Rfam assigns this 108-nucleotide RNA from Plutella xylostella to the family "mir-8517 microRNA precursor family".
The family's consensus secondary structure was predicted with RNAalifold.
Gene Ontology terms of the family: miRNA-mediated post-transcriptional gene silencing and RISC complex.
NCBI's taxonomy places the organism under Eukaryota, Arthropoda, Amphiesmenoptera, Plutellidae, Plutella.
A search with the family's covariance model found it, with a score of 111 bits.
Nucleotides: 108
Base pairs, nucleotide, nucleotide: 002106004104005103006102011097012096013095014094015093016092017091018090019089020088021087022086023085024084025083026082027081028080029069030068031067032066033065034064035063049059050058051057052056
Number, partner (000 for none) and nucleotide at each position: 001000a002106u003000u004104g005103u006102g007000g008000a009000c010000g011097c012096u013095u014094u015093a016092g017091c018090u019089a020088u021087u022086g023085a024084a025083c026082u027081g028080u029069u030068u031067u032066g033065u034064c035063a036000c037000u038000c039000u040000u041000u042000g043000a044000c045000g046000g047000a048000g049059a050058a051057c052056a053000a054000a055000u056052u057051g058050u059049u060000c061000u062000u063035u064034g065033a066032c067031a068030g069029a070000g071000a072000g073000g074000g075000a076000c077000a078000a079000a080028a081027c082026a083025g084024u085023u086022c087021a088020a089019u090018a091017g092016c093015u094014a095013a096012a097011g098000c099000c100000u101000a102006c103005a104004c105000u106002a107000a108000c